[Rfam]
RNA sequence: CACUUCUCAAUGAGCUCCUUCCUGUCAGCACAUCAGUGGCAGCCUAUGGAUUCGCACGAGAAGAAUAUUAACUGCUCAGUGCUGGCAAACUCACAAUGGUGCCCCAUCGAUUGUGAUCAGCCUCUGCUGUGCUACAAGU
Numbered sequence: 001c002a003c004u005u006c007u008c009a010a011u012g013a014g015c016u017c018c019u020u021c022c023u024g025u026c027a028g029c030a031c032a033u034c035a036g037u038g039g040c041a042g043c044c045u046a047u048g049g050a051u052u053c054g055c056a057c058g059a060g061a062a063g064a065a066u067a068u069u070a071a072c073u074g075c076u077c078a079g080u081g082c083u084g085g086c087a088a089a090c091u092c093a094c095a096a097u098g099g100u101g102c103c104c105c106a107u108c109g110a111u112u113g114u115g116a117u118c119a120g121c122c123u124c125u126g127c128u129g130u131g132c133u134a135c136a137a138g139u
Stems, first nucleotide, its partner, number of pairs: 003063006014055002016050003022042005074132002077129003094113004099108001